A member of the RNA family "mir-9193 microRNA precursor family" from Myotis brandtii, 74 nucleotides long. Rfam links the family to the GO terms miRNA-mediated post-transcriptional gene silencing and RISC complex. The family has 2 seed sequences and 6,008 matches in Rfam 15.1. The match comes from Rfam's covariance-model search (72 bits).
Nucleotides: 074
Base pairs, nucleotide, nucleotide: 003072004071006069009067011065013063014062015061016060017059018058019057020056021055022054023053025051026050027048028047030045031044032043033042034041
Number, partner (000 for none) and nucleotide at each position: 001000c002000u003072u004071g005000g006069g007000g008000g009067u010000u011065g012000g013063g014062g015061g016060g017059u018058c019057c020056c021055u022054c023053a024000c025051c026050u027048g028047g029000a030045u031044u032043g033042c034041a035000a036000g037000a038000g039000g040000g041034u042033g043032c044031a045030g046000g047028c048027c049000a050026a051025g052000c053023u054022g055021a056020g057019g058018g059017a060016c061015u062014c063013c064000a065011c066000c067009a068000g069006u070000g071004c072003a073000c074000g

The family's consensus secondary structure was predicted with RNAalifold. NCBI's taxonomy places the organism under Eukaryota, Euteleostomi, Boreoeutheria, Laurasiatheria, Myotis.